[Rfam]
RNA sequence: GGGAGGUGUGAUCCCGUGCUCCCCAGGAGGUCUGAUCCCGUGCUUCCUGGGAGGUGUGAUAUCGUGGUUCCU
Numbered sequence: 001g002g003g004a005g006g007u008g009u010g011a012u013c014c015c016g017u018g019c020u021c022c023c024c025a026g027g028a029g030g031u032c033u034g035a036u037c038c039c040g041u042g043c044u045u046c047c048u049g050g051g052a053g054g055u056g057u058g059a060u061a062u063c064g065u066g067g068u069u070c071c072u
Stems, first nucleotide, its partner, number of pairs: 001071004015058004020053001022051008031042001033040002

Shown here is a 72-nucleotide RNA from Homo sapiens, a member of the family "mir-3689 microRNA precursor family". The source organism's lineage runs through Eukaryota, Deuterostomia, Chordata, Craniata and Homo.